RNA: BsrG
Organism: Rummeliibacillus sp. TYF005
RNA sequence: UUAGAUAGCUGAUACUCAAGGGUGGUUGGCUUACUCCCGCUAAGAAAGGGGGUGAUGCCAUGACAGUAUUUGAAGCAUUAAUGUUUGCAAUCGCGUUUGCAACGUUAGUCAUAGCAAUUCUGUCAUUUAAUCAUAAAAAAUAACCCAUCCUUGAGUUAGGCCUCUGUGAUGGGUUAUUUCUACCAUGUAGAGCCAAUCCCCUUAAGGGAAUCAACUAUCUAAUUGACCGUUCGAUGGACCAACAUCGGCG
Numbered sequence: 001u002u003a004g005a006u007a008g009c010u011g012a013u014a015c016u017c018a019a020g021g022g023u024g025g026u027u028g029g030c031u032u033a034c035u036c037c038c039g040c041u042a043a044g045a046a047a048g049g050g051g052g053u054g055a056u057g058c059c060a061u062g063a064c065a066g067u068a069u070u071u072g073a074a075g076c077a078u079u080a081a082u083g084u085u086u087g088c089a090a091u092c093g094c095g096u097u098u099g100c101a102a103c104g105u106u107a108g109u110c111a112u113a114g115c116a117a118u119u120c121u122g123u124c125a126u127u128u129a130a131u132c133a134u135a136a137a138a139a140a141u142a143a144c145c146c147a148u149c150c151u152u153g154a155g156u157u158a159g160g161c162c163u164c165u166g167u168g169a170u171g172g173g174u175u176a177u178u179u180c181u182a183c184c185a186u187g188u189a190g191a192g193c194c195a196a197u198c199c200c201c202u203u204a205a206g207g208g209a210a211u212c213a214a215c216u217a218u219c220u221a222a223u224u225g226a227c228c229g230u231u232c233g234a235u236g237g238a239c240c241a242a243c244a245u246c247g248g249c250g
Base pairs, nucleotide, nucleotide: 001222002221003220004219005218007216008215011212013196015155016154017153018152019151020150021149022148024145025144026143027142031055032054033053034052035051036050037049038048062124063123064122065121066120068118075088076087077086098116099115100114165187166186167185197209198208199207200206228250229249230248231247233246234245235244236243